[Rfam]
RNA sequence: AGGAGGAACAACCCCAGUGGCAGCGGCCACCUCUGGAAACCUGUAUUCAGCCCCCGCAGUAACUCGGGAGCAGUCCAUCUGCAGGGCCUGGAGGCUCUGGGGUGGG
Numbered sequence: 001a002g003g004a005g006g007a008a009c010a011a012c013c014c015c016a017g018u019g020g021c022a023g024c025g026g027c028c029a030c031c032u033c034u035g036g037a038a039a040c041c042u043g044u045a046u047u048c049a050g051c052c053c054c055c056g057c058a059g060u061a062a063c064u065c066g067g068g069a070g071c072a073g074u075c076c077a078u079c080u081g082c083a084g085g086g087c088c089u090g091g092a093g094g095c096u097c098u099g100g101g102g103u104g105g106g
Stems, first nucleotide, its partner, number of pairs: 002098004009090002012086003019079002023075001029074002031070004036065002041059003